Notes:
This 99-nucleotide sequence from Carboxylicivirga sediminis belongs to the Rfam family "SAM riboswitch aptamer (S box leader)".
RNA sequence: AGUUUAUUGAGAAGAGGGGAGAGACAGGCUCGGCGAACCUCUGGCAACCACCCUUUGGGCAGGUGCCAAAACCUGAUUCCUUUUGGAUGUUAAUGAAUU
Numbered sequence: 001a002g003u004u005u006a007u008u009g010a011g012a013a014g015a016g017g018g019g020a021g022a023g024a025c026a027g028g029c030u031c032g033g034c035g036a037a038c039c040u041c042u043g044g045c046a047a048c049c050a051c052c053c054u055u056u057g058g059g060c061a062g063g064u065g066c067c068a069a070a071a072c073c074u075g076a077u078u079c080c081u082u083u084u085g086g087a088u089g090u091u092a093a094u095g096a097a098u099u
Stems, first nucleotide, its partner, number of pairs: 001099008013042005021031003025075004043067004048063002051059003071091001076088004
The SAM riboswitch is found upstream of a number of genes which code for proteins involved in methionine or cysteine biosynthesis in Gram-positive bacteria. The SAM riboswitch acts at the level of transcription termination control. The predicted structure consists of a complex stem-loop region followed by a single stem loop terminator region. An alternative and mutually exclusive form involves bases in the 3' segment of helix 1 with those in the 5' region of helix 5 to form a structure termed the anti-terminator form. This entry represents the conserved core of the complex structure involving helices 1-4. NCBI's taxonomy places the organism under Bacteria, Bacteroidota, Bacteroidia, Marinilabiliaceae, Carboxylicivirga. A search with the family's covariance model found it, with a score of 72 bits.